RNA sequence: UGCUCUGAUGAUGUCAAAACAUUAAACUUUCGUUCUCCUGAGAUUUCAAUGUGCUGAAAUAAAUUGGAGACCUGAACUGAAGAGUU
Dot-bracket structure: ..((((..........................................................................))))..
Source information: The record is an 86-nucleotide RNA from Raphanus sativus, which matches "Small nucleolar RNA Z159/U59" in Rfam. Rfam classes the family as a C/D-box small nucleolar RNA. The family has 10 seed sequences and 1,401 matches in Rfam 15.1. Gene Ontology terms of the family: RNA processing and nucleolus.